Guanidine-I riboswitch aptamer: a 122-nucleotide sequence from Cyanobium sp. PCC 7001.
NCBI's taxonomy places the organism under Bacteria, Cyanophyceae, Synechococcales, Prochlorococcaceae, Cyanobium.
A search with the family's covariance model found it, with a score of 75 bits.
Pairs were carried over by alignment from the consensus structure.
[Rfam]
RNA sequence: GCGGACAGGUUCUAGGGUUCCGGCUGCGUUGGUUCCUGAUCUUCAGGGCCCCUCAGCAGCGUCUGGUCCGAGAGAACUACACCGGCGGCGCCGGUGCACGGAGGGACAAAAGCCCGGGAGAC
Numbered sequence: 001g002c003g004g005a006c007a008g009g010u011u012c013u014a015g016g017g018u019u020c021c022g023g024c025u026g027c028g029u030u031g032g033u034u035c036c037u038g039a040u041c042u043u044c045a046g047g048g049c050c051c052c053u054c055a056g057c058a059g060c061g062u063c064u065g066g067u068c069c070g071a072g073a074g075a076a077c078u079a080c081a082c083c084g085g086c087g088g089c090g091c092c093g094g095u096g097c098a099c100g101g102a103g104g105g106a107c108a109a110a111a112g113c114c115c116g117g118g119a120g121a122c
Stems, first nucleotide, its partner, number of pairs: 008078005015069002020066002022063001023060005080096007097117001099120001103115003